[Rfam]
RNA sequence: GCAUGACUGAAUACUGUGUUCUUUUUAUCAGUAGCAUACACAGCCAGACACCACGCAAAAGCAAAGUCUUCCCUUUGAAAGGGCUAUGAUGGUAUGCCAAGUUUCUUCACAGAAUAUCAUUUUUAAAAGUAGAUACAAAC
Numbered sequence: 001g002c003a004u005g006a007c008u009g010a011a012u013a014c015u016g017u018g019u020u021c022u023u024u025u026u027a028u029c030a031g032u033a034g035c036a037u038a039c040a041c042a043g044c045c046a047g048a049c050a051c052c053a054c055g056c057a058a059a060a061g062c063a064a065a066g067u068c069u070u071c072c073c074u075u076u077g078a079a080a081g082g083g084c085u086a087u088g089a090u091g092g093u094a095u096g097c098c099a100a101g102u103u104u105c106u107u108c109a110c111a112g113a114a115u116a117u118c119a120u121u122u123u124u125a126a127a128a129g130u131a132g133a134u135a136c137a138a139a140c
Stems, first nucleotide, its partner, number of pairs: 001056002004053002014043006069133002072129001074127005088121008097112001
The record is a 140-nucleotide RNA sequence from Rhinolophus ferrumequinum, which matches "Small nucleolar RNA SNORA15" in Rfam. It is annotated as an H/ACA-box small nucleolar RNA. Taxonomically the source falls in Rhinolophus (Eukaryota, Eumetazoa, Chordata, Boreoeutheria). The match comes from Rfam's covariance-model search (108 bits). Rfam 15.1 lists 974 matches to the family in 624 species. A reference for the family is Huttenhofer et al. (2001), "RNomics: an experimental approach that identifies 201 candidates for novel, small, non-messenger RNAs in mouse", EMBO J.